Small nucleolar SNORD12/SNORD106: a 90-nucleotide sequence from Alligator sinensis. Its Rfam clan is "SNORD12 clan". The source organism's lineage runs through Eukaryota, Eumetazoa, Deuterostomia, Chordata and Alligator. The literature on the family includes a 2001 paper in EMBO J by Huttenhofer et al., "RNomics: an experimental approach that identifies 201 candidates for novel, small, non-messenger RNAs in mouse". Its family is annotated with nucleolus and RNA processing in the Gene Ontology. Pairs were carried over by alignment from the consensus structure, which was predicted with RNAalifold. It is annotated as a C/D-box small nucleolar RNA.

[Rfam]
RNA sequence: UCUGUGGUAUAUGAUGACUUAAACUUUUUUCCCCAUCAUAUCGGCUAUGCUGAUUUCUUGAAUUCAAGCCAAACUGUCUGAUUCCACAGA
Numbered sequence: 001u002c003u004g005u006g007g008u009a010u011a012u013g014a015u016g017a018c019u020u021a022a023a024c025u026u027u028u029u030u031c032c033c034c035a036u037c038a039u040a041u042c043g044g045c046u047a048u049g050c051u052g053a054u055u056u057c058u059u060g061a062a063u064u065c066a067a068g069c070c071a072a073a074c075u076g077u078c079u080g081a082u083u084c085c086a087c088a089g090a
Stems, first nucleotide, its partner, number of pairs: 001090007009082001